[Rfam]
RNA sequence: CGGAAGUAAUCCGGCUAAGGGAAUUCGGCAAAUUAGCCACGUAACUUCGGGAUAAGUGGUGCCUGCUUCGCAAGAAGCAGGUCGCAGUGACGAGGGGGCUCUGACUGUCUAAUAACAACAUAGGUGGUUGCAGACCCGAAAGGGCAAGUACAACCACUGAAUCCUGCCCAGUGCGGGUACCUGAAAACCCGGUACAACGGGAAGAAGGGCCCGUCAACGGCGGGGGUAACUAUGACCCUCUUAAGGUAGCGUAGUACCUUGCCGCUUAAUUGGCGGCUCGCAUGAAUGGAUCAACGAGAGCCCCACUGUCCCUAGCCGGAACCCGGUGAACCUUACGUCCCAGUGCAGAGUCUGGGGA
Numbered sequence: 001c002g003g004a005a006g007u008a009a010u011c012c013g014g015c016u017a018a019g020g021g022a023a024u025u026c027g028g029c030a031a032a033u034u035a036g037c038c039a040c041g042u043a044a045c046u047u048c049g050g051g052a053u054a055a056g057u058g059g060u061g062c063c064u065g066c067u068u069c070g071c072a073a074g075a076a077g078c079a080g081g082u083c084g085c086a087g088u089g090a091c092g093a094g095g096g097g098g099c100u101c102u103g104a105c106u107g108u109c110u111a112a113u114a115a116c117a118a119c120a121u122a123g124g125u126g127g128u129u130g131c132a133g134a135c136c137c138g139a140a141a142g143g144g145c146a147a148g149u150a151c152a153a154c155c156a157c158u159g160a161a162u163c164c165u166g167c168c169c170a171g172u173g174c175g176g177g178u179a180c181c182u183g184a185a186a187a188c189c190c191g192g193u194a195c196a197a198c199g200g201g202a203a204g205a206a207g208g209g210c211c212c213g214u215c216a217a218c219g220g221c222g223g224g225g226g227u228a229a230c231u232a233u234g235a236c237c238c239u240c241u242u243a244a245g246g247u248a249g250c251g252u253a254g255u256a257c258c259u260u261g262c263c264g265c266u267u268a269a270u271u272g273g274c275g276g277c278u279c280g281c282a283u284g285a286a287u288g289g290a291u292c293a294a295c296g297a298g299a300g301c302c303c304c305a306c307u308g309u310c311c312c313u314a315g316c317c318g319g320a321a322c323c324c325g326g327u328g329a330a331c332c333u334u335a336c337g338u339c340c341c342a343g344u345g346c347a348g349a350g351u352c353u354g355g356g357g358a
Base pairs, nucleotide, nucleotide: 001325002324003323010320011319012318013317014316015315016314017313019311020310021309036060037059038058039057040056045050061082062081063080064079065078066077067076068075069074083087095304096303097302098301099300100299101298102296103295106120107119108118123158124157125156126155127154128153129152130151131148135144136143137142161291162290163289164288166221167220168219171218172217173214174213175212176211177210180209181208182207188201189200190199191198222240223239224238225237226236227235241245261277262276263275264274265273266272339356340355341354342353343352
Shown here is a 358-nucleotide part of an RNA from Methanothrix thermoacetophila, a member of the family "Archaeal large subunit ribosomal RNA".
The base pairs follow the family's consensus structure, which is taken from published work.
For this family Rfam cites "Crystal structure of the ribosome at 5.5 A resolution" (Yusupov et al., Science, 2001).